freshwater-2 RNA: an 87-nucleotide RNA.
The family's RNA type in Rfam is cis-regulatory element.
Rfam's curators put it in the seed alignment.
The family's consensus secondary structure is taken from published work.
RNA sequence: CAACAACACAAAGUAGUUGGACUUAUGCGGAUUAAACCGCGUAGCAAGUAGAACUUGCAUUUGGCUCCUGUAAGGAGAAAAAAAAUG
Dot-bracket structure: ((((.(.......).))))....(((((((......)))))))((((.......)))).............................